The family of this 87-nucleotide RNA sequence from Roseateles toxinivorans is "Burkholderia RNA 7 (anti-hemB)". It scores 54 bits against the family's covariance model. The source organism's lineage runs through Bacteria, Pseudomonadati, Betaproteobacteria, Sphaerotilaceae and Roseateles. Gene Ontology terms of the family: protein binding and bacterial biofilm matrix. A reference for the family is Ramos et al. (2013), "Experimental identification of small non-coding regulatory RNAs in the opportunistic human pathogen Burkholderia cenocepacia J2315", Genomics. Rfam classes the family as a small RNA. Rfam describes the family as follows. This RNA motif was identified by computational search in b-proteobacteria Burkholderia. Co-purified with Hfq, expression confirmed by Northern blot.

RNA sequence: CCCCUGCUAUUCCUCCCUGAGCAGGAGCCGGACGUAAUGACAUCGCCUGGCUUUCCAGCCUCGACCUUCGGGUCGGGGCUUUUUUCU
Numbered sequence: 001c002c003c004c005u006g007c008u009a010u011u012c013c014u015c016c017c018u019g020a021g022c023a024g025g026a027g028c029c030g031g032a033c034g035u036a037a038u039g040a041c042a043u044c045g046c047c048u049g050g051c052u053u054u055c056c057a058g059c060c061u062c063g064a065c066c067u068u069c070g071g072g073u074c075g076g077g078g079c080u081u082u083u084u085u086c087u
Stems, first nucleotide, its partner, number of pairs: 003025006027051005033045001058079008